[Rfam]
RNA sequence: UUUUAGGAAGUGAGGAUCGGAUAAAACUAAAUUGACACUACUCUAUUACUUUUUUUUUAUACAAUCAAUUUAGUUUUCUCCGAUGUCUCACAUCCGAGAA
Numbered sequence: 001u002u003u004u005a006g007g008a009a010g011u012g013a014g015g016a017u018c019g020g021a022u023a024a025a026a027c028u029a030a031a032u033u034g035a036c037a038c039u040a041c042u043c044u045a046u047u048a049c050u051u052u053u054u055u056u057u058u059a060u061a062c063a064a065u066c067a068a069u070u071u072a073g074u075u076u077u078c079u080c081c082g083a084u085g086u087c088u089c090a091c092a093u094c095c096g097a098g099a100a
Base pairs, nucleotide, nucleotide: 004097006095007094008093011090012089013088014087016084017083018082019081020080021079023077024076025075026074027073028072029071030070032068033067034066035065
RNA: MIR2275 microRNA precursor family
Organism: Papaver nudicaule